Source information: skipping-rope RNA: an 82-nucleotide RNA from Streptococcus mutans. Rfam's curators put it in the seed alignment.
RNA sequence: AACAUCUGAGGACAGGAAGGUUUCUGACCCACCCUAAGUUUGAGGUAACUGAGAUGACGUAGUUACUGACCGUCAAGAUGUU
Number, nucleotide and partner (000 for none) at each position: 001a082002a081003c080004a079005u078006c077007u076008g000009a000010g000011g028012a000013c026014a025015g024016g000017a000018a000019g067020g066021u065022u000023u000024c015025u014026g013027a000028c011029c000030c051031a000032c000033c045034c044035u043036a000037a000038g000039u000040u000041u000042g000043a035044g034045g033046u000047a000048a000049c000050u000051g030052a000053g000054a000055u000056g074057a073058c072059g071060u000061a000062g000063u000064u000065a021066c020067u019068g000069a000070c000071c059072g058073u057074c056075a000076a007077g006078a005079u004080g003081u002082u001